[Rfam]
RNA sequence: CGUGUGGUGUCCGACUUCGGGUUUGAUAGCGACACGGCCUAAAUUGAGGU
Numbered sequence: 001c002g003u004g005u006g007g008u009g010u011c012c013g014a015c016u017u018c019g020g021g022u023u024u025g026a027u028a029g030c031g032a033c034a035c036g037g038c039c040u041a042a043a044u045u046g047a048g049g050u
Base pairs, nucleotide, nucleotide: 001036002035003034004033005032007030008029011025013023014022015021016020
RNA: L31-Gammaproteobacteria ribosomal protein leader